[Rfam]
RNA: mir-9014 microRNA precursor family
Organism: Equus asinus
Nucleotides: 088
Stems, first nucleotide, its partner, number of pairs: 002087002006083002010079004015074002018071001020069006029062002038060004044054004
Number, partner (000 for none) and nucleotide at each position: 001000g002087g003086a004000c005000c006083c007082a008000c009000a010079g011078g012077g013076a014000g015074g016073g017000a018071u019000a020069c021068c022067a023066a024065u025064c026000c027000a028000g029062c030061c031000u032000u033000a034000g035000g036000a037000a038060a039059a040058g041057a042000a043000a044054c045053c046052u047051g048000c049000c050000a051047c052046g053045g054044g055000a056000g057041u058040c059039u060038u061030g062029g063000a064025g065024a066023u067022u068021g069020g070000c071018a072000a073016u074015u075000g076013u077012c078011c079010u080000a081000a082007u083006g084000a085000c086003u087002u088000g